[Rfam]
RNA sequence: CCUUCGCUGAUGAUCCAGUGUGAUGACUUUCGUUCUUCUGAGCUUGCUGAAGCCAUUCUUGAGAUCUGAGGAGG
Numbered sequence: 001c002c003u004u005c006g007c008u009g010a011u012g013a014u015c016c017a018g019u020g021u022g023a024u025g026a027c028u029u030u031c032g033u034u035c036u037u038c039u040g041a042g043c044u045u046g047c048u049g050a051a052g053c054c055a056u057u058c059u060u061g062a063g064a065u066c067u068g069a070g071g072a073g074g
Stems, first nucleotide, its partner, number of pairs: 001074003005070001